[Rfam]
RNA sequence: GUUUGCAGAUGAUGUAAACUCAGUUUUAUGCUUAACACACUGAUUAACCAUGGUGACUACAAACUCCGCUUAUUAAGUGAUGCCAAA
Numbered sequence: 001g002u003u004u005g006c007a008g009a010u011g012a013u014g015u016a017a018a019c020u021c022a023g024u025u026u027u028a029u030g031c032u033u034a035a036c037a038c039a040c041u042g043a044u045u046a047a048c049c050a051u052g053g054u055g056a057c058u059a060c061a062a063a064c065u066c067c068g069c070u071u072a073u074u075a076a077g078u079g080a081u082g083c084c085a086a087a
Stems, first nucleotide, its partner, number of pairs: 003085001005083003
RNA: Small nucleolar RNA R16
Organism: Artemisia annua